Shown here is a 256-nucleotide RNA sequence from Listeria monocytogenes, a member of the family "Listeria sRNA rliA". On this family, see Mandin et al., Nucleic Acids Res 2007: "Identification of new noncoding RNAs in Listeria monocytogenes and prediction of mRNA targets".
RNA sequence: AUAUGUAUAAAAAUACGUUUUAUACGCAAGGGAUUACAGUUCUAUUUGAAUAGGUUAUUUUUUAAUGGCUUAGUUUACUUUUGAAUGUAUAAAAUUAUGUAUAUUGACGCAAUUUGUGUUAUUUUGGAAAUGGAUUCAAAUAAAUCAAUUCUUAUACUAAUUAUCUAGAAAACAACCCAAAUGCUAACUAAAAAAUAUUCUGGUAGGGUAAAUAAAUGAAUAAAGAAACCGAACAAAAACUAGCCGCGUCAUUCAC
Numbered sequence: 001a002u003a004u005g006u007a008u009a010a011a012a013a014u015a016c017g018u019u020u021u022a023u024a025c026g027c028a029a030g031g032g033a034u035u036a037c038a039g040u041u042c043u044a045u046u047u048g049a050a051u052a053g054g055u056u057a058u059u060u061u062u063u064a065a066u067g068g069c070u071u072a073g074u075u076u077a078c079u080u081u082u083g084a085a086u087g088u089a090u091a092a093a094a095u096u097a098u099g100u101a102u103a104u105u106g107a108c109g110c111a112a113u114u115u116g117u118g119u120u121a122u123u124u125u126g127g128a129a130a131u132g133g134a135u136u137c138a139a140a141u142a143a144a145u146c147a148a149u150u151c152u153u154a155u156a157c158u159a160a161u162u163a164u165c166u167a168g169a170a171a172a173c174a175a176c177c178c179a180a181a182u183g184c185u186a187a188c189u190a191a192a193a194a195a196u197a198u199u200c201u202g203g204u205a206g207g208g209u210a211a212a213u214a215a216a217u218g219a220a221u222a223a224a225g226a227a228a229c230c231g232a233a234c235a236a237a238a239a240c241u242a243g244c245c246g247c248g249u250c251a252u253u254c255a256c
Base pairs, nucleotide, nucleotide: 002028004026005025006024007023008022009021010020011019030250034246038241039240040239041238043236044141045140047138048137049136050135051072052071053070054069055068056067057066058065059064095133096132097131098130100128102126103125105121106120107119108118109117110116143162144161145160147158149156